[Rfam]
RNA sequence: CCCAUUGAUAAUGAGGAUCUCAUAUUAAAAAUCUUAGGUGGCCUUGAUGAAGAUUACAAAGACCUCUGCUCAGCCAUCCGUGUCCGUGACAACCCUAUUACGUUUGAUGAACUGCAUGAGAAACUCAUCAAUUUUGAAG
Numbered sequence: 001c002c003c004a005u006u007g008a009u010a011a012u013g014a015g016g017a018u019c020u021c022a023u024a025u026u027a028a029a030a031a032u033c034u035u036a037g038g039u040g041g042c043c044u045u046g047a048u049g050a051a052g053a054u055u056a057c058a059a060a061g062a063c064c065u066c067u068g069c070u071c072a073g074c075c076a077u078c079c080g081u082g083u084c085c086g087u088g089a090c091a092a093c094c095c096u097a098u099u100a101c102g103u104u105u106g107a108u109g110a111a112c113u114g115c116a117u118g119a120g121a122a123a124c125u126c127a128u129c130a131a132u133u134u135u136g137a138a139g
Stems, first nucleotide, its partner, number of pairs: 005137004088108001090106003
The family of this 139-nucleotide RNA from Citrus unshiu is "Small nucleolar RNA Z247". A search with the family's covariance model found it, with a score of 40 bits. Its family is annotated with RNA processing and nucleolus in the Gene Ontology. The family's consensus secondary structure was predicted with PFOLD. The family has 8 seed sequences and 7,071 matches in Rfam 15.1. On this family, see Chen et al., Nucleic Acids Res 2003: "The high diversity of snoRNAs in plants: identification and comparative study of 120 snoRNA genes from Oryza sativa". It is annotated as a C/D-box small nucleolar RNA.